[Rfam]
Nucleotides: 023
Stems, first nucleotide, its partner, number of pairs: 004017005
Number, partner (000 for none) and nucleotide at each position: 001000u002000g003000a004017c005016u006015a007014g008013c009000g010000g011000a012000g013008g014007c015006u016005a017004g018000a019000g020000g021000a022000g023000g
This 23-nucleotide RNA from Lentivirus humimdef1 belongs to the Rfam family "HIV-1 stem-loop 3 Psi packaging signal". It is one of the family's seed sequences. The source organism's lineage runs through Viruses, Pararnavirae, Artverviricota, Ortervirales and Lentivirus humimdef1. The family's RNA type in Rfam is cis-regulatory element. The family's consensus secondary structure is taken from published work. Rfam links the family to the GO term viral RNA genome packaging.